[Rfam]
RNA sequence: UAGCAAGCAUCCAGUGUGCUUGGGUCUACUGCACUCUUACAGUGCUUGCCAGAACUGUUUUGAAACAGUUUGAGGCCUUGCCCUGCUCCACCCAGAGCAAGGUUAUAGAAAUUUCAGAUAAUU
Number, nucleotide and partner (000 for none) at each position: 001u000002a000003g049004c048005a047006a046007g045008c044009a000010u000011c000012c000013a000014g000015u000016g000017u033018g032019c031020u000021u000022g027023g000024g000025u000026c000027u022028a000029c000030u000031g019032c018033a017034c000035u000036c000037u000038u000039a000040c000041a000042g000043u000044g008045c007046u006047u005048g004049c003050c000051a000052g000053a000054a000055c000056u000057g000058u000059u000060u000061u116062g115063a114064a113065a112066c000067a000068g000069u000070u000071u000072g000073a000074g000075g000076c102077c101078u100079u099080g098081c097082c000083c095084u094085g093086c000087u000088c000089c000090a000091c000092c000093c085094a084095g083096a000097g081098c080099a079100a078101g077102g076103u000104u000105a000106u000107a000108g000109a000110a000111a000112u065113u064114u063115c062116a061117g000118a000119u000120a000121a000122u000123u000
Rfam assigns this 123-nucleotide RNA sequence from Carlito syrichta to the family "Small nucleolar RNA SNORA9". The family has 36 seed sequences and 1,202 matches in Rfam 15.1. The base pairs follow the family's consensus structure, which was predicted with PFOLD. From the family's description: ACA9 is a member of the H/ACA class of snoRNA that guide the sites of modification of uridines to pseudouridines. The match comes from Rfam's covariance-model search (119 bits). The family is grouped with related families in Rfam's "SNORA9 clan". It is annotated as an H/ACA-box small nucleolar RNA.